[Rfam]
The record is a 79-nucleotide RNA, which matches "SmY spliceosomal RNA" in Rfam. Rfam 15.1 lists 408 matches to the family in 67 species. A search with the family's covariance model found it, with a score of 59 bits.
Nucleotides: 079
Stems, first nucleotide, its partner, number of pairs: 022039003026035003057078009
Number, partner (000 for none) and nucleotide at each position: 001000u002000u003000c004000a005000a006000u007000u008000a009000g010000a011000a012000u013000u014000u015000u016000c017000u018000a019000g020000a021000c022039g023038g024037g025000c026035c027034u028033u029000c030000u031000c032000u033028a034027a035026g036000a037024c038023c039022c040000u041000g042000a043000u044000c045000a046000c047000a048000a049000u050000u051000u052000u053000u054000g055000g056000a057078g058077c059076c060075c061074u062073g063072a064071u065070c066000u067000g068000c069000c070065g071064g072063u073062c074061g075060g076059g077058g078057c079000a